[Rfam]
RNA sequence: GCGGAUGGCCGGGUGACCGCGGGGGCACGCCCCCGAGGAAAGUCCGGACUCCAUGAGGCAACGGUGCCGGGUAACGCCCGGCGGGGGUAACCCCAGGGAAAGCGCAACAGAGAACAGACCGCCUGUGCCAGUCACAGGUAAGGGUGAAACGGUGGGGUAAGAGCCCACCGGGGGGCUGGCAACAGACCCCGCAUGGCAAGCCCCACCGGGAGCAAUGCCGAAUAGGGACCUCGUGCCGGCAACGGCAGCGCCGCCUUGCGCCAGAAGGUCCGGGUUGGCAGCUUGACGCACGCAGUAAUGCGCUGCGCAGAGGAAUGGUCAUCCAGAGGGGCAACCCUUGGACAGAAUCCGGCUUACAGGCCAUCCGCGUGU
Numbered sequence: 001g002c003g004g005a006u007g008g009c010c011g012g013g014u015g016a017c018c019g020c021g022g023g024g025g026c027a028c029g030c031c032c033c034c035g036a037g038g039a040a041a042g043u044c045c046g047g048a049c050u051c052c053a054u055g056a057g058g059c060a061a062c063g064g065u066g067c068c069g070g071g072u073a074a075c076g077c078c079c080g081g082c083g084g085g086g087g088u089a090a091c092c093c094c095a096g097g098g099a100a101a102g103c104g105c106a107a108c109a110g111a112g113a114a115c116a117g118a119c120c121g122c123c124u125g126u127g128c129c130a131g132u133c134a135c136a137g138g139u140a141a142g143g144g145u146g147a148a149a150c151g152g153u154g155g156g157g158u159a160a161g162a163g164c165c166c167a168c169c170g171g172g173g174g175g176c177u178g179g180c181a182a183c184a185g186a187c188c189c190c191g192c193a194u195g196g197c198a199a200g201c202c203c204c205a206c207c208g209g210g211a212g213c214a215a216u217g218c219c220g221a222a223u224a225g226g227g228a229c230c231u232c233g234u235g236c237c238g239g240c241a242a243c244g245g246c247a248g249c250g251c252c253g254c255c256u257u258g259c260g261c262c263a264g265a266a267g268g269u270c271c272g273g274g275u276u277g278g279c280a281g282c283u284u285g286a287c288g289c290a291c292g293c294a295g296u297a298a299u300g301c302g303c304u305g306c307g308c309a310g311a312g313g314a315a316u317g318g319u320c321a322u323c324c325a326g327a328g329g330g331g332c333a334a335c336c337c338u339u340g341g342a343c344a345g346a347a348u349c350c351g352g353c354u355u356a357c358a359g360g361c362c363a364u365c366c367g368c369g370u371g372u
Base pairs, nucleotide, nucleotide: 001368002367003366004365005364006363007362008361009360010359011357012323013322014321015320016319017318018317020035021034022033023032024031025030040355041354042353044352045351046350047349048348049212050211051210052209057256058255062208063207064206065205066204067081068080069079070078071077082096083094084093085092086091097203098202102201103200104197105196119143120142121139122138123137124136125135126134127133151169152168153167154166155165156164170192171190172189173188174187176185177184178183216280217279218278219277226271227270228269229268230267231266248261249260250259251258287307288306289305290304291302292301293300294299
The family of this 372-nucleotide sequence from Paracoccus aurantiacus is "Bacterial RNase P class A". The family's consensus secondary structure is taken from published work. The family's RNA type in Rfam is ribozyme. The match comes from Rfam's covariance-model search (287 bits). The source organism's lineage runs through Bacteria, Pseudomonadati, Pseudomonadota, Paracoccaceae and Paracoccus.